[Rfam]
RNA sequence: AACAAAAAGCGGUCGACUACAAACGCGCACGUCCUGUGGCAACGUCGACACUAGGCCAUCCUGGCCG
Numbered sequence: 001a002a003c004a005a006a007a008a009g010c011g012g013u014c015g016a017c018u019a020c021a022a023a024c025g026c027g028c029a030c031g032u033c034c035u036g037u038g039g040c041a042a043c044g045u046c047g048a049c050a051c052u053a054g055g056c057c058a059u060c061c062u063g064g065c066c067g
Stems, first nucleotide, its partner, number of pairs: 012049006025040002028038003054066004
Overview
This 67-nucleotide RNA sequence from Bacillus sp. T33-2 belongs to the Rfam family "Bacillaceae-1 RNA". It is annotated as a small RNA. The base pairs follow the family's consensus structure, which is taken from published work.